[Rfam]
RNA: Giant, ornate, lake- and Lactobacillales-derived (GOLLD) RNA
RNA sequence: GAGAGGUGUGAAGCAUUUUGUUUUCAAAAGAAACGAAACUUCUCCCGAAGCACAUCUUUCUCAUUUCCAUCGUUACUUUUACUAAAACUAAAAGAGAGCAAAAGUUCUUCGGGCGUUGACAACGAAAGGUGUCUAACACUUCGAGUCAAUAGACUAACGAAGUCAUCGGUAGACCGCAAGUCUCCUGAUGUCAAUUAUCAAAUACCUGGUGGGAUGGCCGUCCCUUAGUGAACUCGCAAGGUUUGACAGAGUAAAGUAGUAGUUGAGUAGUUGUUAACGAAAAGAGUGGUUCACUCAAAUAACCGACACUGACUUGAUACUUUCGGCAACGAGAGUGGAUACAUGAGCAACCGAUAUAGGGUAAUCUCACUAAAGACAAGUCACCAUAAACGUGUAAUCUCAGCGU
Numbered sequence: 001g002a003g004a005g006g007u008g009u010g011a012a013g014c015a016u017u018u019u020g021u022u023u024u025c026a027a028a029a030g031a032a033a034c035g036a037a038a039c040u041u042c043u044c045c046c047g048a049a050g051c052a053c054a055u056c057u058u059u060c061u062c063a064u065u066u067c068c069a070u071c072g073u074u075a076c077u078u079u080u081a082c083u084a085a086a087a088c089u090a091a092a093a094g095a096g097a098g099c100a101a102a103a104g105u106u107c108u109u110c111g112g113g114c115g116u117u118g119a120c121a122a123c124g125a126a127a128g129g130u131g132u133c134u135a136a137c138a139c140u141u142c143g144a145g146u147c148a149a150u151a152g153a154c155u156a157a158c159g160a161a162g163u164c165a166u167c168g169g170u171a172g173a174c175c176g177c178a179a180g181u182c183u184c185c186u187g188a189u190g191u192c193a194a195u196u197a198u199c200a201a202a203u204a205c206c207u208g209g210u211g212g213g214a215u216g217g218c219c220g221u222c223c224c225u226u227a228g229u230g231a232a233c234u235c236g237c238a239a240g241g242u243u244u245g246a247c248a249g250a251g252u253a254a255a256g257u258a259g260u261a262g263u264u265g266a267g268u269a270g271u272u273g274u275u276a277a278c279g280a281a282a283a284g285a286g287u288g289g290u291u292c293a294c295u296c297a298a299a300u301a302a303c304c305g306a307c308a309c310u311g312a313c314u315u316g317a318u319a320c321u322u323u324c325g326g327c328a329a330c331g332a333g334a335g336u337g338g339a340u341a342c343a344u345g346a347g348c349a350a351c352c353g354a355u356a357u358a359g360g361g362u363a364a365u366c367u368c369a370c371u372a373a374a375g376a377c378a379a380g381u382c383a384c385c386a387u388a389a390a391c392g393u394g395u396a397a398u399c400u401c402a403g404c405g406u
Base pairs, nucleotide, nucleotide: 001060002059003058004057005056006055007054008053009052010042011041012040013039017037018036019035020034021033022032023031024030044113045112046111047110048109049108050107098177099176114279115278116277117276118275119274120273121272122271123270129309130308131307132306133305138163139162140161141160142159143158144155145154146153164190165189166188167187168186171183172182173181174180193264194263195262196261197260206249207248208247211224212223213222214221229245230244231243233241234240288304289303290302291301311382312381313380315378316377318337319336320335321334322333323332324331325330338399339398340397344369345368346367347366391405392404393403